[Rfam]
RNA sequence: CUGCACGAACUCUCCCGGGCUUAUCUGAAUCUCUAAAACUGAAGAAAAAAGCCCCAAAGUUGGUGCUAAAACCAUGCCGUUUCACGUGUUGCGGAGUAGCCUCGCUUUCCCACCGGCUCCUCUGUGUCAAAUCGGCGGCCACAUCU
Numbered sequence: 001c002u003g004c005a006c007g008a009a010c011u012c013u014c015c016c017g018g019g020c021u022u023a024u025c026u027g028a029a030u031c032u033c034u035a036a037a038a039c040u041g042a043a044g045a046a047a048a049a050a051g052c053c054c055c056a057a058a059g060u061u062g063g064u065g066c067u068a069a070a071a072c073c074a075u076g077c078c079g080u081u082u083c084a085c086g087u088g089u090u091g092c093g094g095a096g097u098a099g100c101c102u103c104g105c106u107u108u109c110c111c112a113c114c115g116g117c118u119c120c121u122c123u124g125u126g127u128c129a130a131a132u133c134g135g136c137g138g139c140c141a142c143a144u145c146u
Stems, first nucleotide, its partner, number of pairs: 003066004008061003017054005022048001024045003076139006087129002090126006099117003
Record summary
Shown here is a 146-nucleotide RNA from Hibiscus trionum, a member of the family "small nucleolar RNA snoR134". It is annotated as an H/ACA-box small nucleolar RNA. For this family Rfam cites "Mining small RNA sequencing data: a new approach to identify small nucleolar RNAs in Arabidopsis" (Chen and Wu, Nucleic Acids Res, 2009). Pairs were carried over by alignment from the consensus structure, which was predicted with RNAalifold. Rfam 15.1 lists 792 matches to the family in 228 species.